[Rfam]
RNA sequence: UCCUCGCUCAAAAGAUCGCAAUCAAAGCUGACAAACCGACUACCUUUGGUGGUCCAGCAACACAUACAGCUUUGGGAGAAAGUCCCCGGACAGCCGGACUCUUUGGGCCCGGUUUGCGGAAACGCGCCGCCAUAAAAGCACGUACAGCGGCUCAUCUCGACUACAGCCUCCAUCCCUCCUUGCAAAUCUCCUUUACCGUCUGCACUCUUUCUUGGAUACCCUGCGGCUCGGACUAAUGAGACUUAAGGACCGCUGGCUUCGGCCAGUGCCUGGCGACAGGAGACGAGGAUAUGAGUCUGCUCCUUGUGCUCUCGUCAGUCUCUGCGGCCGCAAGGUGGAAGAGGGGGAGGAGGUGAGGAGGAUCUUGUGCAAAGAGAAAAGGUGGUACUCAGGUUGUUGUUGAGAGCUUUUCGUCGUGGUUGAUAGAUAUGCGAUUGCCUGCUCCUUGCUUGCGGACACAUCUCACAAGAUUUGCUGACUGCAAAGCUCGGAAUACGGUAACUCGAUGGGGCUUAUUCUUGAUGCGAGG
Numbered sequence: 001u002c003c004u005c006g007c008u009c010a011a012a013a014g015a016u017c018g019c020a021a022u023c024a025a026a027g028c029u030g031a032c033a034a035a036c037c038g039a040c041u042a043c044c045u046u047u048g049g050u051g052g053u054c055c056a057g058c059a060a061c062a063c064a065u066a067c068a069g070c071u072u073u074g075g076g077a078g079a080a081a082g083u084c085c086c087c088g089g090a091c092a093g094c095c096g097g098a099c100u101c102u103u104u105g106g107g108c109c110c111g112g113u114u115u116g117c118g119g120a121a122a123c124g125c126g127c128c129g130c131c132a133u134a135a136a137a138g139c140a141c142g143u144a145c146a147g148c149g150g151c152u153c154a155u156c157u158c159g160a161c162u163a164c165a166g167c168c169u170c171c172a173u174c175c176c177u178c179c180u181u182g183c184a185a186a187u188c189u190c191c192u193u194u195a196c197c198g199u200c201u202g203c204a205c206u207c208u209u210u211c212u213u214g215g216a217u218a219c220c221c222u223g224c225g226g227c228u229c230g231g232a233c234u235a236a237u238g239a240g241a242c243u244u245a246a247g248g249a250c251c252g253c254u255g256g257c258u259u260c261g262g263c264c265a266g267u268g269c270c271u272g273g274c275g276a277c278a279g280g281a282g283a284c285g286a287g288g289a290u291a292u293g294a295g296u297c298u299g300c301u302c303c304u305u306g307u308g309c310u311c312u313c314g315u316c317a318g319u320c321u322c323u324g325c326g327g328c329c330g331c332a333a334g335g336u337g338g339a340a341g342a343g344g345g346g347g348a349g350g351a352g353g354u355g356a357g358g359a360g361g362a363u364c365u366u367g368u369g370c371a372a373a374g375a376g377a378a379a380a381g382g383u384g385g386u387a388c389u390c391a392g393g394u395u396g397u398u399g400u401u402g403a404g405a406g407c408u409u410u411u412c413g414u415c416g417u418g419g420u421u422g423a424u425a426g427a428u429a430u431g432c433g434a435u436u437g438c439c440u441g442c443u444c445c446u447u448g449c450u451u452g453c454g455g456a457c458a459c460a461u462c463u464c465a466c467a468a469g470a471u472u473u474g475c476u477g478a479c480u481g482c483a484a485a486g487c488u489c490g491g492a493a494u495a496c497g498g499u500a501a502c503u504c505g506a507u508g509g510g511g512c513u514u515a516u517u518c519u520u521g522a523u524g525c526g527a528g529g
Stems, first nucleotide, its partner, number of pairs: 002529006008522004014436006022076001023074006038054007080514003084511004115126004252267006360408002363405005369397004438498002443493001
A member of the RNA family "RNase MRP" from Acidomyces sp. 'richmondensis', 529 nucleotides long. Rfam 15.1 lists 3,510 matches to the family in 2,315 species. RNase MRP is an enzymatically active ribonucleoprotein with two distinct roles in eukaryotes. NCBI's taxonomy places the organism under Eukaryota, Fungi, Pezizomycotina, Dothideomycetes, Acidomyces sp. 'richmondensis'. Rfam classes the family as a ribozyme. The literature on the family includes a 1993 paper in FASEB J by Schmitt et al., "Secondary structure of RNase MRP RNA as predicted by phylogenetic comparison". Pairs were carried over by alignment from the consensus structure, which is taken from published work. Gene Ontology terms of the family: rRNA processing, ribonuclease MRP activity and ribonuclease MRP complex.